[Rfam]
RNA sequence: ACAGUACAAACUGAGCAGACCGUGAUAUAUCAUGGAGUCGGGUCACAAAGGUGACAGUGGAAUUUCUUCAUCCACGGGACAGUA
Numbered sequence: 001a002c003a004g005u006a007c008a009a010a011c012u013g014a015g016c017a018g019a020c021c022g023u024g025a026u027a028u029a030u031c032a033u034g035g036a037g038u039c040g041g042g043u044c045a046c047a048a049a050g051g052u053g054a055c056a057g058u059g060g061a062a063u064u065u066c067u068u069c070a071u072c073c074a075c076g077g078g079a080c081a082g083u084a
Base pairs, nucleotide, nucleotide: 010083011082012081013080016078018039019038020037022033023032024031025030042055043054044053045052046051057075058074059073060072061071

Source information:
A member of the RNA family "NiCo (Nickel/Cobalt) riboswitch aptamer" from Firmicutes bacterium CAG:194, 84 nucleotides long. Lineage of the source: Bacteria > Bacillati > Bacillota. Gene Ontology terms of the family: cobalt ion binding and metal ion homeostasis. On this family, see Furukawa et al., Mol Cell 2015: "Bacterial riboswitches cooperatively bind Ni(2+) or Co(2+) ions and control expression of heavy metal transporters". The base pairs follow the family's consensus structure, which is taken from published work.